[Rfam]
RNA sequence: ACAGACACUUGGCACGUUUGUGAUGUCAUACAGAGGAAUCACAGGGCAGUACCUGAGGGUCUGU
Numbered sequence: 001a002c003a004g005a006c007a008c009u010u011g012g013c014a015c016g017u018u019u020g021u022g023a024u025g026u027c028a029u030a031c032a033g034a035g036g037a038a039u040c041a042c043a044g045g046g047c048a049g050u051a052c053c054u055g056a057g058g059g060u061c062u063g064u
Base pairs, nucleotide, nucleotide: 001064002063003062004061005060006059008057009056012053017045018044019043020042021041022040023039024038025031026030
RNA: MAT2A 3'UTR stem loop B